[Rfam]
RNA sequence: GGGGCUCCGGUUCUCGUUGCUGCUCACCCGGCCAGGAUACGGGCGCGGCGGCAGCGACCCGGCGGCC
Numbered sequence: 001g002g003g004g005c006u007c008c009g010g011u012u013c014u015c016g017u018u019g020c021u022g023c024u025c026a027c028c029c030g031g032c033c034a035g036g037a038u039a040c041g042g043g044c045g046c047g048g049c050g051g052c053a054g055c056g057a058c059c060c061g062g063c064g065g066c067c
Stems, first nucleotide, its partner, number of pairs: 003067003007062004015056009
This 67-nucleotide RNA from Streptomyces hoynatensis belongs to the Rfam family "L31-Actinobacteria ribosomal protein leader". The organism belongs to Streptomyces, within Bacteria.